[Rfam]
RNA sequence: CUCUCCGUCUCGGGGUGCUCUUCGUGGCGCAUAGAGUUGCGCGCACGUCGGGCUGAGAGAGACCCGCAGCACCUGAACGCGGUAAUGCGCGCGUAGGGAAGACGGAGAUUAUCAUA
Numbered sequence: 001c002u003c004u005c006c007g008u009c010u011c012g013g014g015g016u017g018c019u020c021u022u023c024g025u026g027g028c029g030c031a032u033a034g035a036g037u038u039g040c041g042c043g044c045a046c047g048u049c050g051g052g053c054u055g056a057g058a059g060a061g062a063c064c065c066g067c068a069g070c071a072c073c074u075g076a077a078c079g080c081g082g083u084a085a086u087g088c089g090c091g092c093g094u095a096g097g098g099a100a101g102a103c104g105g106a107g108a109u110u111a112u113c114a115u116a
Stems, first nucleotide, its partner, number of pairs: 006104005011066004016060001017053004072097004078091004